[Rfam]
RNA sequence: GGAAUUUCGUCGGCGCCUACCUCCUCCCGGGCUCCGACGGAUACGAUCAGCUUUCACCUCCUCCCGAUCGCUGAUCGACCCAAACGGCACCCGCCGGACCUCCUCCCCCGGCGGGUGUUGUGA
Numbered sequence: 001g002g003a004a005u006u007u008c009g010u011c012g013g014c015g016c017c018u019a020c021c022u023c024c025u026c027c028c029g030g031g032c033u034c035c036g037a038c039g040g041a042u043a044c045g046a047u048c049a050g051c052u053u054u055c056a057c058c059u060c061c062u063c064c065c066g067a068u069c070g071c072u073g074a075u076c077g078a079c080c081c082a083a084a085c086g087g088c089a090c091c092c093g094c095c096g097g098a099c100c101u102c103c104u105c106c107c108c109c110g111g112c113g114g115g116u117g118u119u120g121u122g123a
Stems, first nucleotide, its partner, number of pairs: 007040003011036003015032003045076007054067001087118011

A member of the RNA family "Alphaproteobacterial ar14" from Borborobacter arsenicus, 123 nucleotides long. The base pairs follow the family's consensus structure. It scores 86 bits against the family's covariance model. Its family is annotated with biological process involved in symbiotic interaction in the Gene Ontology. Taxonomically the source falls in Borborobacter (Bacteria, Pseudomonadati, Hyphomicrobiales, Phyllobacteriaceae). Rfam classes the family as a small RNA.